[Rfam]
RNA sequence: GCGAUGAGCUGAUUUGUGUAAGUCGAGGGACAAUGCAAUACAUGUGCAUGUGAACCACAUGGUCCUUCGCCACAAAUUUCGUGGAAAAGCCGCCUAUUCUUAGGCGGCUUU
Numbered sequence: 001g002c003g004a005u006g007a008g009c010u011g012a013u014u015u016g017u018g019u020a021a022g023u024c025g026a027g028g029g030a031c032a033a034u035g036c037a038a039u040a041c042a043u044g045u046g047c048a049u050g051u052g053a054a055c056c057a058c059a060u061g062g063u064c065c066u067u068c069g070c071c072a073c074a075a076a077u078u079u080c081g082u083g084g085a086a087a088a089g090c091c092g093c094c095u096a097u098u099c100u101u102a103g104g105c106g107g108c109u110u111u
Stems, first nucleotide, its partner, number of pairs: 014075005024069008041061002044058003086111009